tRNA: a 90-nucleotide sequence from Cutaneotrichosporon oleaginosum. Pairs were carried over by alignment from the consensus structure, which is taken from published work. Taxonomically the source falls in Cutaneotrichosporon (Eukaryota, Dikarya, Agaricomycotina, Trichosporonales).
RNA sequence: AUCGCUAUAGCUUAGUGGAAGAGCGCGAGGCUCAUAUGGGUAGUUCCAUACGACACCUCGAGGUCCCAAGAUCGAGACUUGGUGGCGAUA
Numbered sequence: 001a002u003c004g005c006u007a008u009a010g011c012u013u014a015g016u017g018g019a020a021g022a023g024c025g026c027g028a029g030g031c032u033c034a035u036a037u038g039g040g041u042a043g044u045u046c047c048a049u050a051c052g053a054c055a056c057c058u059c060g061a062g063g064u065c066c067c068a069a070g071a072u073c074g075a076g077a078c079u080u081g082g083u084g085g086c087g088a089u090a
Stems, first nucleotide, its partner, number of pairs: 001089007010024004026060005066082005